A member of the RNA family "Alphaproteobacteria transfer-messenger RNA" from Tepidicaulis marinus, 364 nucleotides long. Rfam links the family to the GO term RNA catabolic process. It is annotated as a non-coding RNA gene.
RNA sequence: ACCCUUUAUUUGCCGCUCAUGAUGCUUAUAUUACGUCUGUCGGCAUUGCCGACUAUGGCGAUAAACGGACUACGUAAUAAGCCUAUCGGACCCGGGGGCAGUACCCGGCGCCUCCACCAAUAUCCCCGCGCUUGAAACAGUUUUGCGGGCUUCAGGGGGGCGAAACAGGAUCGACGAGGGUGUAAAGGUAGUUUUUUCGCUCGGCAUGGUAGCCACCGUUAUCGGGCCAAACUUGAUAGUUGCCAACGACAACUAUGCUGAAGCACGUCUCGCUGCCUAAGCAGUGCGACAGCUUCGAAUUAAGCCCUAGCCGUUAGCACGGUUAGGCGGGGUUCGAGGGCACCUGGCAACAGAAGCCCUCACU
Numbered sequence: 001a002c003c004c005u006u007u008a009u010u011u012g013c014c015g016c017u018c019a020u021g022a023u024g025c026u027u028a029u030a031u032u033a034c035g036u037c038u039g040u041c042g043g044c045a046u047u048g049c050c051g052a053c054u055a056u057g058g059c060g061a062u063a064a065a066c067g068g069a070c071u072a073c074g075u076a077a078u079a080a081g082c083c084u085a086u087c088g089g090a091c092c093c094g095g096g097g098g099c100a101g102u103a104c105c106c107g108g109c110g111c112c113u114c115c116a117c118c119a120a121u122a123u124c125c126c127c128g129c130g131c132u133u134g135a136a137a138c139a140g141u142u143u144u145g146c147g148g149g150c151u152u153c154a155g156g157g158g159g160g161c162g163a164a165a166c167a168g169g170a171u172c173g174a175c176g177a178g179g180g181u182g183u184a185a186a187g188g189u190a191g192u193u194u195u196u197u198c199g200c201u202c203g204g205c206a207u208g209g210u211a212g213c214c215a216c217c218g219u220u221a222u223c224g225g226g227c228c229a230a231a232c233u234u235g236a237u238a239g240u241u242g243c244c245a246a247c248g249a250c251a252a253c254u255a256u257g258c259u260g261a262a263g264c265a266c267g268u269c270u271c272g273c274u275g276c277c278u279a280a281g282c283a284g285u286g287c288g289a290c291a292g293c294u295u296c297g298a299a300u301u302a303a304g305c306c307c308u309a310g311c312c313g314u315u316a317g318c319a320c321g322g323u324u325a326g327g328c329g330g331g332g333u334u335c336g337a338g339g340g341c342a343c344c345u346g347g348c349a350a351c352a353g354a355a356g357c358c359c360u361c362a363c364u
Stems, first nucleotide, its partner, number of pairs: 039053005057201005067194007082180003086177003092108005109162007202218003207229003213225002330345004336361006
Source information: The match comes from Rfam's covariance-model search (310 bits).